[Rfam]
RNA sequence: GCUGUACAUGAUGACAACUGGCUCCCUCUACCGAACAGCUAUGAGGAAAUUACCAUGUCACUUCUGACACAGC
Numbered sequence: 001g002c003u004g005u006a007c008a009u010g011a012u013g014a015c016a017a018c019u020g021g022c023u024c025c026c027u028c029u030a031c032c033g034a035a036c037a038g039c040u041a042u043g044a045g046g047a048a049a050u051u052a053c054c055a056u057g058u059c060a061c062u063u064c065u066g067a068c069a070c071a072g073c
Base pairs, nucleotide, nucleotide: 001073002072003071004070005069